[Rfam]
RNA sequence: ACAAUUUAAGGGCAAAAUCACUGAAAGGUGAUGACGCAAAGCUAUAGGGGCUAAAGUCUUUAAAUAUGACAAGCCAGCCAGCUGCCAUC
Numbered sequence: 001a002c003a004a005u006u007u008a009a010g011g012g013c014a015a016a017a018u019c020a021c022u023g024a025a026a027g028g029u030g031a032u033g034a035c036g037c038a039a040a041g042c043u044a045u046a047g048g049g050g051c052u053a054a055a056g057u058c059u060u061u062a063a064a065u066a067u068g069a070c071a072a073g074c075c076a077g078c079c080a081g082c083u084g085c086c087a088u089c
Stems, first nucleotide, its partner, number of pairs: 012037002017032006040083004047079002049075003056070003
RNA: c-di-GMP-I riboswitch aptamer
Organism: Neobacillus mesonae